[Rfam]
Shown here is a 133-nucleotide RNA from Cottoperca gobio, a member of the family "Small nucleolar RNA SNORA55". From the family's description: ACA55 is a member of the H/ACA class of snoRNA that guide the sites of modification of uridines to pseudouridines. The match comes from Rfam's covariance-model search (47 bits). Rfam classes the family as an H/ACA-box small nucleolar RNA. The family has 29 seed sequences and 1,476 matches in Rfam 15.1.

RNA sequence: GCACCUCAUAGCAACCCUGUCGAUCCUGUGAAGUGUUUUGAUACGGGACAUUGUUGGUGCCACAGAGAGUCAACGUAAAUCCAGAUGGACCUCCUCUUCUCGUGGAGCCUGUCUCUACAACUUUGAUACACAA
Numbered sequence: 001g002c003a004c005c006u007c008a009u010a011g012c013a014a015c016c017c018u019g020u021c022g023a024u025c026c027u028g029u030g031a032a033g034u035g036u037u038u039u040g041a042u043a044c045g046g047g048a049c050a051u052u053g054u055u056g057g058u059g060c061c062a063c064a065g066a067g068a069g070u071c072a073a074c075g076u077a078a079a080u081c082c083a084g085a086u087g088g089a090c091c092u093c094c095u096c097u098u099c100u101c102g103u104g105g106a107g108c109c110u111g112u113c114u115c116u117a118c119a120a121c122u123u124u125g126a127u128a129c130a131c132a133a
Base pairs, nucleotide, nucleotide: 001060002059003058004057005056015046016045018043019042021040022039070126071125072124073123075121083114084113085112086111087110088109090107093105094104